[Rfam]
RNA sequence: UGUUGAUAUGCUUGAAAUUUUGCCUCUACCCGUUUUACUGUACAGGGUGAGCAAAGUUUCAGGUGUUUCAGUAU
Dot-bracket structure: .(((((..(((((((.(((((..(((..(((.............))).))).))))).)))))))..)))))..
Numbered sequence: 001u002g003u004u005g006a007u008a009u010g011c012u013u014g015a016a017a018u019u020u021u022g023c024c025u026c027u028a029c030c031c032g033u034u035u036u037a038c039u040g041u042a043c044a045g046g047g048u049g050a051g052c053a054a055a056g057u058u059u060c061a062g063g064u065g066u067u068u069c070a071g072u073a074u
Stems, first nucleotide, its partner, number of pairs: 002072005009065007017057005024051003029047003

Shown here is a 74-nucleotide sequence from Brassicogethes aeneus, a member of the family "mir-87 microRNA precursor family". Pairs were carried over by alignment from the consensus structure, which was predicted with RNAalifold. Gene Ontology terms of the family: RISC complex and miRNA-mediated post-transcriptional gene silencing. A search with the family's covariance model found it, with a score of 56 bits. Taxonomically the source falls in Brassicogethes (Eukaryota, Eumetazoa, Pancrustacea, Altocrustacea).